[Rfam]
Nucleotides: 129
Base pairs, nucleotide, nucleotide: 001128002127003126004125005124006123007122008121009120011118012117013116014115015114016113017112018111019110020109021108022107023106025104026103027102028101029100030099032097033096034095035094036093037092038091039090040089041088042087
Number, partner (000 for none) and nucleotide at each position: 001128g002127g003126c004125c005124c006123a007122a008121u009120g010000u011118a012117g013116a014115a015114g016113a017112a018111a019110u020109g021108u022107g023106u024000u025104g026103c027102a028101g029100u030099a031000a032097g033096a034095c035094u036093u037092u038091g039090g040089u041088c042087u043000g044000g045000g046000c047000g048000a049000g050000u051000u052000g053000g054000u055000u056000c057000a058000u059000a060000g061000c062000a063000a064000u065000g066000g067000g068000a069000a070000g071000g072000c073000a074000c075000a076000g077000u078000g079000u080000u081000g082000c083000a084000g085000u086000a087042a088041g089040a090039c091038c092037a093036a094035a095034g096033u097032c098000u099030u100029a101028c102027u103026g104025c105000a106023a107022c108021a109020c110019a111018u112017u113016u114015c115014u116013u117012c118011u119000a120009c121008a122007u123006u124005g125004g126003g127002c128001c129000c
The family of this 129-nucleotide RNA from Rhipicephalus sanguineus is "mir-5928 microRNA precursor family". The source organism's lineage runs through Eukaryota, Bilateria, Arachnida, Acari and Rhipicephalus. It scores 60 bits against the family's covariance model.